[Rfam]
RNA sequence: UCGGGAUAUCGCAGGCUCCCGACGUCGCAAAGACGGUUCCCCGUCCAAGUCCUGC
Number, nucleotide and partner (000 for none) at each position: 001u022002c021003g020004g019005g018006a017007u000008a000009u000010c000011g055012c054013a053014g052015g051016c000017u006018c005019c004020c003021g002022a001023c000024g000025u000026c000027g000028c000029a000030a000031a000032g045033a044034c043035g042036g041037u000038u000039c000040c000041c036042c035043g034044u033045c032046c000047a000048a000049g000050u000051c015052c014053u013054g012055c011
The family of this 55-nucleotide RNA is "chrB-b RNA". Rfam classes the family as a cis-regulatory element.